The record is a 58-nucleotide RNA sequence from Janibacter melonis, which matches "msiK RNA" in Rfam. It scores 57 bits against the family's covariance model.

RNA sequence: CCACCCCACCCUUUACGACGGAUCGUCCGGCACGUACCUGCCGGUGAAGGAAAGGCAA
Dot-bracket structure: .........((((((...........((((((......))))))))))))........

Overview
The source organism's lineage runs through Bacteria, Actinomycetota, Actinomycetes, Micrococcales and Janibacter.